Small nucleolar RNA SNORD123: a 68-nucleotide RNA from Merops nubicus. It scores 91 bits against the family's covariance model. The organism belongs to Merops, within Eukaryota. A reference for the family is Yang et al. (2006), "snoSeeker: an advanced computational package for screening of guide and orphan snoRNA genes in the human genome", Nucleic Acids Res. Rfam classes the family as a C/D-box small nucleolar RNA.
RNA sequence: GGUGAAAAUGAUGAAUUUUGGGGUACUGAUUCAUGUGACCUGAAAAGCCAUCCAUUUCCUGAUUCACC
Dot-bracket structure: ((((((........................................................))))))